[Rfam]
RNA sequence: AGCACUAUUUUUAAACCUAUUGAUGGAAAACCUCACCAUCCUAGGUUACGCUAUGGUGCAAAAUAAUUUCUUGGCUCUCCUAGCACAGCUGACUGUUCCUUUAUACUGAUGCUGUGGUGGAGUUAAAGAAACAUU
Numbered sequence: 001a002g003c004a005c006u007a008u009u010u011u012u013a014a015a016c017c018u019a020u021u022g023a024u025g026g027a028a029a030a031c032c033u034c035a036c037c038a039u040c041c042u043a044g045g046u047u048a049c050g051c052u053a054u055g056g057u058g059c060a061a062a063a064u065a066a067u068u069u070c071u072u073g074g075c076u077c078u079c080c081u082a083g084c085a086c087a088g089c090u091g092a093c094u095g096u097u098c099c100u101u102u103a104u105a106c107u108g109a110u111g112c113u114g115u116g117g118u119g120g121a122g123u124u125a126a127a128g129a130a131a132c133a134u135u
Stems, first nucleotide, its partner, number of pairs: 002059007014047004022040005068130005073124006079117002083112003086108003092102001
Shown here is a 135-nucleotide RNA sequence from Ornithorhynchus anatinus, a member of the family "Small nucleolar RNA SNORA46". It is annotated as an H/ACA-box small nucleolar RNA. Rfam 15.1 lists 582 matches to the family in 490 species. Rfam's curators write: ACA46 is a member of the H/ACA class of snoRNA that guide the sites of modification of uridines to pseudouridines. The sequence is in the family's curated seed alignment. Lineage of the source: Eukaryota > Eumetazoa > Dipnotetrapodomorpha > Mammalia > Ornithorhynchus.